Small nucleolar RNA snoR26: a 92-nucleotide RNA sequence from Elaeis guineensis. A search with the family's covariance model found it, with a score of 75 bits. It is annotated as a C/D-box small nucleolar RNA. Pairs were carried over by alignment from the consensus structure, which was predicted with WAR.

[Rfam]
RNA sequence: UCAGCAUCAGUGAUGUUUAACCUCUUUUUGUUAUCCUUGCACUUUGAUUGCCGGUGAAGAAAUUUUGGGGAAAAUCAUUUACUGAGAUGCUU
Numbered sequence: 001u002c003a004g005c006a007u008c009a010g011u012g013a014u015g016u017u018u019a020a021c022c023u024c025u026u027u028u029u030g031u032u033a034u035c036c037u038u039g040c041a042c043u044u045u046g047a048u049u050g051c052c053g054g055u056g057a058a059g060a061a062a063u064u065u066u067g068g069g070g071a072a073a074a075u076c077a078u079u080u081a082c083u084g085a086g087a088u089g090c091u092u
Base pairs, nucleotide, nucleotide: 003091004090005089006088007087008086
Dot-bracket structure: ..((((((.............................................................................)))))).

The family has 8 seed sequences and 611 matches in Rfam 15.1. A reference for the family is Brown et al. (2001), "Multiple snoRNA gene clusters from Arabidopsis", RNA. The source organism's lineage runs through Eukaryota, Viridiplantae, Streptophytina, Euphyllophyta and Elaeis.